[Rfam]
RNA sequence: UAAAGCGGAAUGCGAUGAAUCUGUGAUCGAGGAAAGUCCGGACAUUGUAGGGUAGGGUGCUGGUUAAUGACCAGGCGGGGAAACCCGACGGAAAGUGCAACAGAAAGCAAACCGCCCGCAGCAUCGCAAGAUGCUGAAGGUAAGGAUGAAACGGUGAGGUAAGAGCUCACCAGCAAGUUGGCAACAGCUUGGCUCGGUAAACCCCACCCAAUGCAAGGCCAAACAAGGAGGGCAUAUUCGCAAGAGUAUGCGGAGAUGACCCGUCUCGCUCCUGGGUAGGCCGCUCGAGGCUGCUGGUAACAGUAGACCCAGAUUAAUGACAGUCUCGGUCCGCAAGGACUAUGACAAAAUCCGGCUUACAGAUCGUUUUAGGAC
Numbered sequence: 001u002a003a004a005g006c007g008g009a010a011u012g013c014g015a016u017g018a019a020u021c022u023g024u025g026a027u028c029g030a031g032g033a034a035a036g037u038c039c040g041g042a043c044a045u046u047g048u049a050g051g052g053u054a055g056g057g058u059g060c061u062g063g064u065u066a067a068u069g070a071c072c073a074g075g076c077g078g079g080g081a082a083a084c085c086c087g088a089c090g091g092a093a094a095g096u097g098c099a100a101c102a103g104a105a106a107g108c109a110a111a112c113c114g115c116c117c118g119c120a121g122c123a124u125c126g127c128a129a130g131a132u133g134c135u136g137a138a139g140g141u142a143a144g145g146a147u148g149a150a151a152c153g154g155u156g157a158g159g160u161a162a163g164a165g166c167u168c169a170c171c172a173g174c175a176a177g178u179u180g181g182c183a184a185c186a187g188c189u190u191g192g193c194u195c196g197g198u199a200a201a202c203c204c205c206a207c208c209c210a211a212u213g214c215a216a217g218g219c220c221a222a223a224c225a226a227g228g229a230g231g232g233c234a235u236a237u238u239c240g241c242a243a244g245a246g247u248a249u250g251c252g253g254a255g256a257u258g259a260c261c262c263g264u265c266u267c268g269c270u271c272c273u274g275g276g277u278a279g280g281c282c283g284c285u286c287g288a289g290g291c292u293g294c295u296g297g298u299a300a301c302a303g304u305a306g307a308c309c310c311a312g313a314u315u316a317a318u319g320a321c322a323g324u325c326u327c328g329g330u331c332c333g334c335a336a337g338g339a340c341u342a343u344g345a346c347a348a349a350a351u352c353c354g355g356c357u358u359a360c361a362g363a364u365c366g367u368u369u370u371a372g373g374a375c
Stems, first nucleotide, its partner, number of pairs: 001025002004022002034358003038355005043213004050262004055209005060074005075089001076087004090204002095202002097198002112145002114141003119136007153171006173193001174191007217282004226273005253267005289308001291306006
RNA: Bacterial RNase P class A